[Rfam]
RNA: RNase MRP
RNA sequence: GCGCCGUCCGAAGAAUCGUUGUCGCAGCUCACGCGCAGGGCGCCCCCGCGCGCCCCCUCUUCUGCUGUGGGGAAAGUCCCCGGAGAUACAGAGCAUGUCCUCGUUCGACUAUGGAAACCGACCGGCUCUAAGCACGACGGUACUGUUCGAGGACGGCGAGAAUGACCUGUAGGAGACCCUUUGGUCUUCGACUCCCUCUCGCCACUCUGUCGCCCACUCUGAAGGCCUCUUAUCGGCGAAGGCGCGGGUUUGCGAAGAUAUGAGCGUUCCCGUUGCUCGGUAUGCUGGCUGGACGAUGGGCAGCUUGUUGCUCAUAGACAUAGUCAUACGAUUGUAGACUCGAAGUUUACUUCAGUCAUCAACUCAAUGGGGCUCACUCUCGUUCGGCG
Number, nucleotide and partner (000 for none) at each position: 001g000002c389003g388004c387005c386006g385007u000008c000009c382010g381011a380012a000013g000014a333015a332016u331017c330018g329019u328020u000021g000022u070023c069024g068025c067026a066027g065028c064029u000030c000031a000032c000033g000034c000035g000036c000037a000038g000039g054040g053041c052042g051043c050044c000045c000046c000047c000048g000049c000050g043051c042052g041053c040054c039055c000056c000057c000058u000059c000060u000061u000062c000063u000064g028065c027066u026067g025068u024069g023070g022071g000072g000073a000074a000075a374076g373077u000078c372079c371080c370081c369082g000083g000084a000085g000086a000087u000088a098089c097090a096091g000092a000093g000094c000095a000096u090097g089098u088099c000100c000101u000102c000103g000104u000105u000106c000107g000108a000109c000110u000111a000112u000113g000114g000115a000116a000117a000118c000119c000120g000121a000122c000123c000124g000125g000126c000127u000128c000129u000130a000131a000132g000133c000134a000135c000136g000137a000138c000139g000140g000141u000142a000143c000144u000145g000146u000147u000148c000149g000150a000151g000152g000153a000154c000155g000156g000157c000158g000159a000160g000161a000162a000163u000164g000165a000166c000167c000168u000169g000170u000171a000172g000173g000174a000175g186176a185177c184178c183179c000180u000181u000182u000183g178184g177185u176186c175187u000188u000189c000190g000191a000192c000193u000194c000195c000196c000197u000198c000199u000200c000201g000202c000203c000204a000205c000206u000207c000208u000209g000210u000211c000212g000213c000214c000215c000216a000217c000218u000219c000220u000221g000222a000223a000224g305225g304226c303227c000228u000229c000230u000231u299232a000233u000234c000235g000236g294237c000238g000239a000240a000241g000242g290243c000244g000245c000246g000247g000248g000249u000250u287251u000252g285253c284254g000255a000256a000257g000258a000259u000260a000261u000262g000263a000264g000265c000266g000267u000268u000269c000270c280271c279272g278273u000274u000275g000276c000277u000278c272279g271280g270281u000282a000283u000284g253285c252286u000287g250288g000289c000290u242291g000292g000293a000294c236295g000296a000297u000298g000299g231300g000301c000302a000303g226304c225305u224306u000307g000308u000309u000310g000311c000312u000313c000314a000315u000316a000317g000318a000319c000320a000321u000322a000323g000324u000325c000326a000327u000328a019329c018330g017331a016332u015333u014334g000335u000336a000337g357338a356339c355340u354341c000342g000343a000344a000345g000346u000347u000348u000349a000350c000351u000352u000353c000354a340355g339356u338357c337358a000359u000360c000361a000362a000363c000364u000365c000366a000367a000368u000369g081370g080371g079372g078373c076374u075375c000376a000377c000378u000379c000380u011381c010382g009383u000384u000385c006386g005387g004388c003389g002